RNA sequence: AAAUGUUUUUUUUGUAUUUCUCCAGUAGGUUUUCUCAAGGAGAAAGCCUGC
Numbered sequence: 001a002a003a004u005g006u007u008u009u010u011u012u013u014g015u016a017u018u019u020c021u022c023c024a025g026u027a028g029g030u031u032u033u034c035u036c037a038a039g040g041a042g043a044a045a046g047c048c049u050g051c
Stems, first nucleotide, its partner, number of pairs: 028048008
A member of the RNA family "U7 small nuclear RNA" from Oncorhynchus kisutch, 51 nucleotides long. About the family: Animal histone pre-mRNAs are spliced by a different mechanism than nuclear pre-mRNAs and self-splicing introns. This processing involves the U7 snRNP, which contains only one RNA species: U7. The match comes from Rfam's covariance-model search (34 bits). On this family, see Marz et al., Genomics Proteomics Bioinformatics 2007: "U7 snRNAs: a computational survey".